Plant signal recognition particle RNA: a 303-nucleotide RNA from Momordica charantia. By type it is a non-coding RNA gene. NCBI's taxonomy places the organism under Eukaryota, Embryophyta, fabids, Momordiceae, Momordica. Its family is annotated with SRP-dependent cotranslational protein targeting to membrane, signal sequence recognition and signal recognition particle, endoplasmic reticulum targeting in the Gene Ontology.
RNA sequence: GCCGAGCCUUGUUACGCGGGCUUGUAACCCAUGUGGGGGUAUUAACGUGGUUGGAGAUUGGACCAUUUCAUUGGGCUGGGCUGCGGAAGAUAUGAUCUGGAUCGCCCAUUUCAAGAAUGGAGUUGGGCCUUGUGUCUUGGGCGAAGGCCCAAGUUGCUGUGCCCUUAGAUCGGAGGAAACCGCAUGAGGCUGGUUUCACAGAGCAGUGUUACCUCCAAUUCCACUCUGUGAAAGGAUUACGGGCCAGUUCUUCCCAAGCCCAAUUGUGCCCAAAGUGAUUCUCUAAGCUCGACAACCAUUUUU
Numbered sequence: 001g002c003c004g005a006g007c008c009u010u011g012u013u014a015c016g017c018g019g020g021c022u023u024g025u026a027a028c029c030c031a032u033g034u035g036g037g038g039g040u041a042u043u044a045a046c047g048u049g050g051u052u053g054g055a056g057a058u059u060g061g062a063c064c065a066u067u068u069c070a071u072u073g074g075g076c077u078g079g080g081c082u083g084c085g086g087a088a089g090a091u092a093u094g095a096u097c098u099g100g101a102u103c104g105c106c107c108a109u110u111u112c113a114a115g116a117a118u119g120g121a122g123u124u125g126g127g128c129c130u131u132g133u134g135u136c137u138u139g140g141g142c143g144a145a146g147g148c149c150c151a152a153g154u155u156g157c158u159g160u161g162c163c164c165u166u167a168g169a170u171c172g173g174a175g176g177a178a179a180c181c182g183c184a185u186g187a188g189g190c191u192g193g194u195u196u197c198a199c200a201g202a203g204c205a206g207u208g209u210u211a212c213c214u215c216c217a218a219u220u221c222c223a224c225u226c227u228g229u230g231a232a233a234g235g236a237u238u239a240c241g242g243g244c245c246a247g248u249u250c251u252u253c254c255c256a257a258g259c260c261c262a263a264u265u266g267u268g269c270c271c272a273a274a275g276u277g278a279u280u281c282u283c284u285a286a287g288c289u290c291g292a293c294a295a296c297c298a299u300u301u302u303u
Base pairs, nucleotide, nucleotide: 001040002039003038004023005022006021007020008019009018028037029036030035044302045301047299048298049297050296051295052294053293056290057289058287059286061283062282065279066278069275071273072272073271074270075269076268078261079260080259081258082257083254085253087252088251089250092248097247098246099245100244102242103241104240106235107234109233110232111231112230113229114227115226116225118223119222120221121220122219123218125164126163127162128161130159132157133156134155136153137152138151139150140149141148142147172216173215174214175213176212182209183208184207185206190201191200192199